[Rfam]
RNA sequence: GAAAAUUAUAGCUCUCUUUAGUAUUUCUCUAGUAGGUUUCCUCAAGGAGAAAGCCUCU
Numbered sequence: 001g002a003a004a005a006u007u008a009u010a011g012c013u014c015u016c017u018u019u020a021g022u023a024u025u026u027c028u029c030u031a032g033u034a035g036g037u038u039u040c041c042u043c044a045a046g047g048a049g050a051a052a053g054c055c056u057c058u
Base pairs, nucleotide, nucleotide: 035055036054037053038052039051041049042048043047
Shown here is a 58-nucleotide RNA from Salvelinus namaycush, a member of the family "U7 small nuclear RNA".
Rfam describes the family as follows. Animal histone pre-mRNAs are spliced by a different mechanism than nuclear pre-mRNAs and self-splicing introns. This processing involves the U7 snRNP, which contains only one RNA species: U7. The 5' end of U7 RNA is thought to base-pair to a conserved spacer element downstream of the cleavage site in histone pre-mRNA. This family contains a number of annotated U7 pseudogenes.